[Rfam]
Notes:
This 218-nucleotide sequence from Insulibacter thermoxylanivorax belongs to the Rfam family "T-box leader". From the family's description: Uncharged tRNA acts as the effector for transcription antitermination of genes in the T-box leader family. T-boxes are found upstream of many aminoacyl-tRNA synthetase genes and some amino acid biosynthetic genes usually in Gram-positive bacteria. The anticodon of a specific tRNA base pairs to a specifier sequence within the T-box motif, and the NCCA acceptor tail of the tRNA base pairs to a conserved bulge in the T-box antiterminator hairpin. The family's RNA type in Rfam is cis-regulatory leader.
RNA sequence: CCAAAGAUGUUGAACGGGAGUAGUAAGCGGCGAACCCAACCAGAGAGCGGAACCAUGAUGCUGAGAGGUUCCGUUGGAUUGUAACCGCUGAAGUCGCCCGGGAGUCGCUGCUGCCAGCCGGUCCAUACAGCCGUUAUCUGUAAGAGUGCCGCGUGCCUGUGUUUUCUAAGGUGCGCGGAACAAAGGUGGUACCGCGGAAGUGUCCUUUCGUCCUUUGU
Numbered sequence: 001c002c003a004a005a006g007a008u009g010u011u012g013a014a015c016g017g018g019a020g021u022a023g024u025a026a027g028c029g030g031c032g033a034a035c036c037c038a039a040c041c042a043g044a045g046a047g048c049g050g051a052a053c054c055a056u057g058a059u060g061c062u063g064a065g066a067g068g069u070u071c072c073g074u075u076g077g078a079u080u081g082u083a084a085c086c087g088c089u090g091a092a093g094u095c096g097c098c099c100g101g102g103a104g105u106c107g108c109u110g111c112u113g114c115c116a117g118c119c120g121g122u123c124c125a126u127a128c129a130g131c132c133g134u135u136a137u138c139u140g141u142a143a144g145a146g147u148g149c150c151g152c153g154u155g156c157c158u159g160u161g162u163u164u165u166c167u168a169a170g171g172u173g174c175g176c177g178g179a180a181c182a183a184a185g186g187u188g189g190u191a192c193c194g195c196g197g198a199a200g201u202g203u204c205c206u207u208u209c210g211u212c213c214u215u216u217g218u
Base pairs, nucleotide, nucleotide: 007105008104015100016099017098018097026089027088028087029086030085036077037076038075047074048073049072050071051070052069053068054067108117109116110115119133120132121131149178150177151176152175153174154173155172156171157170158169183215184214185213186212194211195210196209197208198207